[Rfam]
RNA sequence: CUCCCCGAAAUGCAUUUAGGUGCAGCGUUGUGUAGUGUUAUCCGGAGGUAGAGCUACCAAUAGGGCUAGGGGGCUUCACCGCCUACCAACCCCUGAUGAACUCCGAAUGCCGGUUAACAGCAGCAGCAGUGAGGCUACGGGUGCUAAGGUCCGUGGCCAAGAGGGGAACAACCCAGACCAUCAGCUAAGGUCCCCAAGUGUAUACUAAGUUGGAUUGAACGAUGUGAGGAUGCUAAGACAGCUAGGAUGUUGGCUUGGAAGCAGCCAUUCAUUUAAAGAGUGCGUAACAGCUCACUAGUCGAGCGUUCUUGCGCGGAAAAUAAUCGGGCAUCAAGUAUACCACCGAAGCUAUGGAUUUACCGUAAGGUAAGUGGUAGGGGAGCAUUGUAGUUGGGCUGAAGGUGUGCUGCGAGGCAUGCUGGACUGGCUACAAAAGCAAAU
Dot-bracket structure: ((((((....(((((....))))).((((((((..(((((.((((.....(((....((..((((...((((((......)))).))...))))..))..)).).....)))).)))))))).)))).)...((((((((((......))))))))))....(((......)))...((((.(((...(((......(.((((((..............((..((((((((((.......(((((.(((..(((.........)))...)))(...)(...((......)).).)))))...)))))))))).))...................))))))))))...)))))))(((((((....)))))))....))))))(.((((((((((......((((((((....))))))))...))))))))))..).....
Annotation:
Rfam assigns this 441-nucleotide part of an RNA from Lewinellaceae bacterium SD302 to the family "Bacterial large subunit ribosomal RNA". The base pairs follow the family's consensus structure, which is taken from published work. A search with the family's covariance model found it, with a score of 2692 bits.